[Rfam]
RNA: Small nucleolar RNA Z247
RNA sequence: CACCUUGACGAUGAUGAUCUCGUGUCAUACAUCCUUGCUAGUAUGGAUGUUGAUUUUAAUCCCGUUGUGACGUACGCUAGUUGCAAACCGGACUGAAGCUAUCACCGUCGGUGAACUCUUUGCUCAACUUGUUAGCUUCGAAA
Numbered sequence: 001c002a003c004c005u006u007g008a009c010g011a012u013g014a015u016g017a018u019c020u021c022g023u024g025u026c027a028u029a030c031a032u033c034c035u036u037g038c039u040a041g042u043a044u045g046g047a048u049g050u051u052g053a054u055u056u057u058a059a060u061c062c063c064g065u066u067g068u069g070a071c072g073u074a075c076g077c078u079a080g081u082u083g084c085a086a087a088c089c090g091g092a093c094u095g096a097a098g099c100u101a102u103c104a105c106c107g108u109c110g111g112u113g114a115a116c117u118c119u120u121u122g123c124u125c126a127a128c129u130u131g132u133u134a135g136c137u138u139c140g141a142a143a
Stems, first nucleotide, its partner, number of pairs: 005141004092112005